The record is a 159-nucleotide sequence from Artemisia annua, which matches "U1 spliceosomal RNA" in Rfam.
Rfam 15.1 lists 40,184 matches to the family in 1,499 species.
About the family: U1 is a small nuclear RNA (snRNA) component of the spliceosome (involved in pre-mRNA splicing). Its 5' end forms complementary base pairs with the 5' splice junction, thus defining the 5' donor site of an intron. There are significant differences in sequence and secondary structure between metazoan and yeast U1 snRNAs, the latter being much longer (568 nucleotides as compared to 164 nucleotides in human). Nevertheless, secondary structure predictions suggest that all U1 snRNAs share a 'common core' consisting of helices I, II, the proximal region of III, and IV. This family does not contain the larger yeast sequences.
It is annotated as a spliceosomal small nuclear RNA.
A search with the family's covariance model found it, with a score of 106 bits.
The organism belongs to Artemisia, within Eukaryota.
The family's consensus secondary structure is taken from published work.
RNA sequence: UCACUUACCUGGACGAGUUCAAUGUGAAACAAAAAGACCCAUGUUCUAGGUUGGUGACCUCCAUUGCACUUCGGAGGGGUGCCGCCUAAGGUCGGCCCAAGUGGUUGAGCCUAUAUCGUAAUUUGUGGCAGUGGGGGCUUGCGUUCGCGCAGCCCCUAU
Number, nucleotide and partner (000 for none) at each position: 001u000002c000003a000004c000005u000006u000007a000008c000009c000010u000011g000012g117013a116014c000015g114016a047017g046018u000019u000020c043021a042022a000023u041024g040025u000026g038027a000028a000029a000030c000031a000032a000033a000034a000035a000036g000037a000038c026039c000040c024041a023042u021043g020044u000045u000046c017047u016048a087049g086050g085051u084052u000053g000054g082055u081056g080057a000058c078059c077060u076061c074062c073063a000064u000065u000066g000067c000068a000069c000070u000071u000072c000073g062074g061075a000076g060077g059078g058079g000080u056081g055082c054083c000084g051085c050086c049087u048088a000089a112090g111091g110092u108093c107094g106095g000096c104097c103098c000099a000100a000101g000102u000103g097104g096105u000106u094107g093108a092109g000110c091111c090112u089113a000114u015115a000116u013117c012118g000119u000120a000121a000122u000123u000124u000125g000126u000127g000128g000129c000130a000131g000132u158133g157134g156135g155136g154137g000138c000139u000140u151141g150142c149143g148144u000145u000146c000147g000148c143149g142150c141151a140152g000153c000154c136155c135156c134157u133158a132159u000